[Rfam]
RNA sequence: GGCUUUCUUCGCGGCGGAGCUCGACCGCCCACAGCGUUGAGCGUCGCCUACAUCGACGCGCACAAGGACGAGUUUGGGGUCGAGCCGAUCUGCACUGCGUUGCAGGUCGCCCCG
Numbered sequence: 001g002g003c004u005u006u007c008u009u010c011g012c013g014g015c016g017g018a019g020c021u022c023g024a025c026c027g028c029c030c031a032c033a034g035c036g037u038u039g040a041g042c043g044u045c046g047c048c049u050a051c052a053u054c055g056a057c058g059c060g061c062a063c064a065a066g067g068a069c070g071a072g073u074u075u076g077g078g079g080u081c082g083a084g085c086c087g088a089u090c091u092g093c094a095c096u097g098c099g100u101u102g103c104a105g106g107u108c109g110c111c112c113c114g
Stems, first nucleotide, its partner, number of pairs: 013029005075114005086109002089106006
Rfam assigns this 114-nucleotide RNA sequence from Motilibacter peucedani to the family "ALIL pseudoknot". Pairs were carried over by alignment from the consensus structure, which is taken from published work. Rfam classes the family as a cis-regulatory element.